Shown here is a 141-nucleotide RNA from Populus tomentosa, a member of the family "MIR480 microRNA precursor family".
[Rfam]
RNA sequence: UAAUAUGUCUAGAACAUGUUUUCAUCUGGUUGUGACAGACUCACACUUAAUUGCUCAGAAUCAUCCAUUAUUGCAAACCUAACCCCAACUACAUCAUUAUAGUUGGGCUUACCUAGUAUACAACAGGUUAUGUAUUUUAUU
Numbered sequence: 001u002a003a004u005a006u007g008u009c010u011a012g013a014a015c016a017u018g019u020u021u022u023c024a025u026c027u028g029g030u031u032g033u034g035a036c037a038g039a040c041u042c043a044c045a046c047u048u049a050a051u052u053g054c055u056c057a058g059a060a061u062c063a064u065c066c067a068u069u070a071u072u073g074c075a076a077a078c079c080u081a082a083c084c085c086c087a088a089c090u091a092c093a094u095c096a097u098u099a100u101a102g103u104u105g106g107g108c109u110u111a112c113c114u115a116g117u118a119u120a121c122a123a124c125a126g127g128u129u130a131u132g133u134a135u136u137u138u139a140u141u
Stems, first nucleotide, its partner, number of pairs: 004139002007136001008134001014128002018124002024119002027115003031111001

Record summary:
The family's consensus secondary structure was predicted with WAR. Gene Ontology terms of the family: miRNA-mediated post-transcriptional gene silencing and RISC complex. A search with the family's covariance model found it, with a score of 72 bits.